[Rfam]
RNA sequence: CUCUUAUCAAGAGAGGUGGAGGGACUGGCCCGAUGAAACCCGGCAACCGCGAUUACGAUCGAAGGUGCCAAUUCCUGCAACACAUUAUGUGUUGAAAGAUGAGGG
Numbered sequence: 001c002u003c004u005u006a007u008c009a010a011g012a013g014a015g016g017u018g019g020a021g022g023g024a025c026u027g028g029c030c031c032g033a034u035g036a037a038a039c040c041c042g043g044c045a046a047c048c049g050c051g052a053u054u055a056c057g058a059u060c061g062a063a064g065g066u067g068c069c070a071a072u073u074c075c076u077g078c079a080a081c082a083c084a085u086u087a088u089g090u091g092u093u094g095a096a097a098g099a100u101g102a103g104g105g
Stems, first nucleotide, its partner, number of pairs: 001105008013041001015040003021031003025077001027075002042069004047065002050061004073097001078094006
Rfam assigns this 105-nucleotide RNA from Natronincola ferrireducens to the family "SAM riboswitch aptamer (S box leader)".
A search with the family's covariance model found it, with a score of 101 bits.
The base pairs follow the family's consensus structure, which is taken from published work.
The family is grouped with related families in Rfam's "SAM clan".